Rfam assigns this 296-nucleotide RNA from Oerskovia sp. Root918 to the family "5' ureB small RNA".
The family's consensus secondary structure was predicted with mfold.
The literature on the family includes a 2013 paper in J Bacteriol by Wen et al., "Helicobacter pylori 5'ureB-sRNA, a cis-encoded antisense small RNA, negatively regulates ureAB expression by transcription termination".
Its family is annotated with negative regulation of gene expression in the Gene Ontology.
[Rfam]
Nucleotides: 296
Stems, first nucleotide, its partner, number of pairs: 002295002005293001007291003012164005018076002021073003030056003034053002037051003077154002081150002085147001090144002093141002097136002108127003112123002170283004176278004182272001183270002190230004195225002205218002232266003240258001244256002
Number, partner (000 for none) and nucleotide at each position: 001000c002295g003294g004000c005293c006000u007291g008290c009289g010000c011000c012164u013163g014162c015161u016160g017000c018076g019075g020000c021073g022072a023071g024000a025000u026000g027000u028000a029000g030056u031055g032054c033000a034053c035052g036000u037051g038050g039049g040000a041000g042000u043000c044000g045000a046000u047000c048000g049039c050038c051037c052035c053034g054032g055031c056030g057000g058000u059000c060000g061000c062000g063000a064000u065000g066000c067000a068000g069000u070000g071023c072022u073021c074000a075019c076018c077154g078153g079000c080000a081150a082149g083000g084000a085147c086000c087000u088000c089000g090144g091143u092000c093141g094140u095000g096000g097136c098135g099000c100000c101000g102000a103000c104000c105000a106000c107000c108127a109126g110125c111000c112123g113122c114000g115000g116000g117000u118000c119000g120000a121000c122113g123112c124000c125110g126109c127108u128000c129000u130000g131000c132000a133000g134000a135098u136097g137000a138000g139000g140094g141093u142000u143091g144090c145000c146000c147085g148000a149082c150081u151000u152000g153078c154077c155000g156000a157000u158000a159000c160016c161015g162014g163013c164012g165000a166000u167000c168000u169000u170283g171282c172281c173280g174000u175000c176278c177277u178276u179275g180000a181000c182272g183270c184269c185000g186000a187000u188000g189000u190230c191229g192228c193227c194000c195225u196224u197000g198000a199000u200000c201000a202000c203000g204000c205218c206217g207000a208000g209000g210000a211000c212000g213000g214000g215000g216000u217206c218205g219000a220000g221000g222000a223000u224196g225195a226000u227193g228192g229191c230190g231000u232266u233265g234264g235000u236000g237000a238000u239000g240258a241000c242000c243000a244256g245255g246000u247000c248000g249000a250000g251000c252000g253000c254000a255245c256244c257000c258240u259000g260000a261000g262000c263000a264234c265233u266232g267000g268000u269184g270183g271000c272182c273000u274000g275179c276178g277177g278176g279000u280173c281172g282171g283170c284000g285000g286000c287000c288000a289009u290008g291007c292000c293005g294003u295002c296000a